Rfam assigns this 219-nucleotide RNA sequence from Solibacillus sp. R5-41 to the family "Bacillus sRNA ncr1575".
The family's consensus secondary structure is taken from published work.
The literature on the family includes a 2010 paper in Nucleic Acids Res by Irnov et al., "Identification of regulatory RNAs in Bacillus subtilis".
By type it is a small RNA.
The organism belongs to Solibacillus, within Bacteria.
[Rfam]
RNA sequence: ACAUAAAUGAUUGAAGGAGUGACGGGUGAACGAUGAUUAACUAAUCUUAUUUUUGAGUAAUUGAAAAAAUUUUUUCAAACAAAAAAUAGGAUUAGUAUGCCCAAAUUCCAAUAAAUUUGUAUAAAAAGCUUUUUGCUAUACGCUUUUUUGGCGUCUUUUUUAUACAAAUAUGAACAGCAGCUAAUCCUUCCAAAUUAAUUUUUUUGGGAGGUUUUUUUC
Numbered sequence: 001a002c003a004u005a006a007a008u009g010a011u012u013g014a015a016g017g018a019g020u021g022a023c024g025g026g027u028g029a030a031c032g033a034u035g036a037u038u039a040a041c042u043a044a045u046c047u048u049a050u051u052u053u054u055g056a057g058u059a060a061u062u063g064a065a066a067a068a069a070u071u072u073u074u075u076c077a078a079a080c081a082a083a084a085a086a087u088a089g090g091a092u093u094a095g096u097a098u099g100c101c102c103a104a105a106u107u108c109c110a111a112u113a114a115a116u117u118u119g120u121a122u123a124a125a126a127a128g129c130u131u132u133u134u135g136c137u138a139u140a141c142g143c144u145u146u147u148u149u150g151g152c153g154u155c156u157u158u159u160u161u162a163u164a165c166a167a168a169u170a171u172g173a174a175c176a177g178c179a180g181c182u183a184a185u186c187c188u189u190c191c192a193a194a195u196u197a198a199u200u201u202u203u204u205u206g207g208g209a210g211g212u213u214u215u216u217u218u219c
Stems, first nucleotide, its partner, number of pairs: 016109004024102003030096002042094013061078007118166003123159004128154002183214002186211008